Rfam assigns this 79-nucleotide sequence from Caenorhabditis remanei to the family "SmY spliceosomal RNA".
Rfam classes the family as a spliceosomal small nuclear RNA.
It scores 49 bits against the family's covariance model.
RNA sequence: UUUCUAACCAGAAAGGCAGCAGGGCAUUACUAAAGACCCGUAGUACAAUUUUUGCAGCCCUGUUCUUCGGAGCAGCGGA
Numbered sequence: 001u002u003u004c005u006a007a008c009c010a011g012a013a014a015g016g017c018a019g020c021a022g023g024g025c026a027u028u029a030c031u032a033a034a035g036a037c038c039c040g041u042a043g044u045a046c047a048a049u050u051u052u053u054g055c056a057g058c059c060c061u062g063u064u065c066u067u068c069g070g071a072g073c074a075g076c077g078g079a
Stems, first nucleotide, its partner, number of pairs: 022039003027034002058078002060075006